The record is a 74-nucleotide RNA sequence from Dipodomys ordii, which matches "mir-290 microRNA precursor family" in Rfam. Rfam links the family to the GO terms RISC complex and miRNA-mediated post-transcriptional gene silencing. For this family Rfam cites "Embryonic stem cell-specific MicroRNAs" (Houbaviy et al., Dev Cell, 2003). The family has 31 seed sequences and 565 matches in Rfam 15.1.

RNA sequence: GUGGCACUCAAACUGUGGGGGCACUUUUUUCUCUCCGGUAAUAAAAAAAAGUGCCGCUACUUUUUGAGUGCCAC
Numbered sequence: 001g002u003g004g005c006a007c008u009c010a011a012a013c014u015g016u017g018g019g020g021g022c023a024c025u026u027u028u029u030u031c032u033c034u035c036c037g038g039u040a041a042u043a044a045a046a047a048a049a050a051g052u053g054c055c056g057c058u059a060c061u062u063u064u065u066g067a068g069u070g071c072c073a074c
Base pairs, nucleotide, nucleotide: 004071005070006069007068008067009066010065011064012063015060016059017058018057020055021054022053023052024051025050027048028047029046